Rfam assigns this 76-nucleotide sequence from Sphenodon punctatus to the family "Mammalian CPEB3 ribozyme".
A search with the family's covariance model found it, with a score of 47 bits.
Its family is annotated with RNA nuclease activity in the Gene Ontology.
Lineage of the source: Eukaryota > Chordata > Vertebrata > Gnathostomata > Sphenodon.
Nucleotides: 076
Stems, first nucleotide, its partner, number of pairs: 013046006021076002024073003029039002050065006
Number, partner (000 for none) and nucleotide at each position: 001000c002000c003000c004000c005000u006000c007000c008000u009000c010000c011000c012000g013046g014045g015044g016043g017042c018041c019000g020000a021076g022075g023000a024073a025072g026071g027000a028000a029039u030038g031000u032000u033000c034000a035000u036000g037000u038030c039029a040000c041018g042017g043016c044015c045014c046013c047000c048000a049000u050065c051064a052063g053062a054061u055060u056000c057000u058000a059000g060055a061054a062053u063052c064051u065050g066000a067000g068000a069000a070000c071026c072025c073024u074000g075022c076021u